Shown here is a 175-nucleotide RNA from Staphylococcus haemolyticus, a member of the family "Lysine riboswitch aptamer". The family's consensus secondary structure is taken from published work. The source organism's lineage runs through Bacteria, Bacilli, Caryophanales, Staphylococcaceae and Staphylococcus.
RNA sequence: AAAAGAGUUAGAGGUUGCGUCUUUAAUUAGUAACACUUCAGAAGUUAUUAAGGAACGUGUGUUGAAAGUGUGGAAGGUAAAGAUGCCGAAAUGAAUGAUACCCUUAAUUAUCAUUUGUUGGGACAGUUAUCGAAUAGAAACUGUACUGUCACAAUUUGUGAUGUGCUACCGACGG
Numbered sequence: 001a002a003a004a005g006a007g008u009u010a011g012a013g014g015u016u017g018c019g020u021c022u023u024u025a026a027u028u029a030g031u032a033a034c035a036c037u038u039c040a041g042a043a044g045u046u047a048u049u050a051a052g053g054a055a056c057g058u059g060u061g062u063u064g065a066a067a068g069u070g071u072g073g074a075a076g077g078u079a080a081a082g083a084u085g086c087c088g089a090a091a092u093g094a095a096u097g098a099u100a101c102c103c104u105u106a107a108u109u110a111u112c113a114u115u116u117g118u119u120g121g122g123a124c125a126g127u128u129a130u131c132g133a134a135u136a137g138a139a140a141c142u143g144u145a146c147u148g149u150c151a152c153a154a155u156u157u158g159u160g161a162u163g164u165g166c167u168a169c170c171g172a173c174g175g
Stems, first nucleotide, its partner, number of pairs: 007170001009168003017086009033071006090119011120147002123144006130137001149161005
Dot-bracket structure: ......(.(((.....(((((((((.......((((((...........................))))))......)))))))))...(((((((((((........)))))))))))((.((((((.(......).)))))).)).(((((...)))))....))).).....